Notes
The family of this 87-nucleotide sequence from Brassica oleracea is "mir-160 microRNA precursor family".

RNA sequence: AUAUGCCUGGCUCCCUGUAUGCCAUACACUAAGCUCAUCGACCAUCUCGAGGAUCUCCGUGGAUGGCAUAUGAGGAGCCAAGCAUAU
Numbered sequence: 001a002u003a004u005g006c007c008u009g010g011c012u013c014c015c016u017g018u019a020u021g022c023c024a025u026a027c028a029c030u031a032a033g034c035u036c037a038u039c040g041a042c043c044a045u046c047u048c049g050a051g052g053a054u055c056u057c058c059g060u061g062g063a064u065g066g067c068a069u070a071u072g073a074g075g076a077g078c079c080a081a082g083c084a085u086a087u
Base pairs, nucleotide, nucleotide: 001087002086003085004084005083006082008080009079010078011077012076013075014074016072017071018070019069020068021067022066023065024064027061028060029059
The source organism's lineage runs through Eukaryota, Viridiplantae, Brassicales, Brassiceae and Brassica oleracea.
On this family, see Rhoades et al., Cell 2002: "Prediction of plant microRNA targets".
Rfam links the family to the GO terms RISC complex and miRNA-mediated post-transcriptional gene silencing.
Rfam 15.1 lists 1,502 matches to the family in 247 species.